[Rfam]
RNA: Small nucleolar RNA R160
Organism: Abrus precatorius
RNA sequence: AGCAAAAUGAUGAGGUUUUAAUGUCUAAAUGUGAUGUGGAUUCUUUAUUCAAAUGGUCUUCAAAGUUCUCUGAUUCCU
Numbered sequence: 001a002g003c004a005a006a007a008u009g010a011u012g013a014g015g016u017u018u019u020a021a022u023g024u025c026u027a028a029a030u031g032u033g034a035u036g037u038g039g040a041u042u043c044u045u046u047a048u049u050c051a052a053a054u055g056g057u058c059u060u061c062a063a064a065g066u067u068c069u070c071u072g073a074u075u076c077c078u
Base pairs, nucleotide, nucleotide: 001078002077004075005074